[Rfam]
RNA sequence: CACGCCGUCAUCCGGGGAGUAGCCCGUCCGUUCGAUCCGAACGGAAGAUCGCGUCAACAUACUUGGGGGAGACCUCAUGGUGCGAUCCGGCCCGGCCAGAUAGGCCAGCCGCGGCAAGACCGAUGACACCGGGACU
Numbered sequence: 001c002a003c004g005c006c007g008u009c010a011u012c013c014g015g016g017g018a019g020u021a022g023c024c025c026g027u028c029c030g031u032u033c034g035a036u037c038c039g040a041a042c043g044g045a046a047g048a049u050c051g052c053g054u055c056a057a058c059a060u061a062c063u064u065g066g067g068g069g070a071g072a073c074c075u076c077a078u079g080g081u082g083c084g085a086u087c088c089g090g091c092c093c094g095g096c097c098a099g100a101u102a103g104g105c106c107a108g109c110c111g112c113g114g115c116a117a118g119a120c121c122g123a124u125g126a127c128a129c130c131g132g133g134a135c136u
Stems, first nucleotide, its partner, number of pairs: 027045003047087010064077005089135001091133005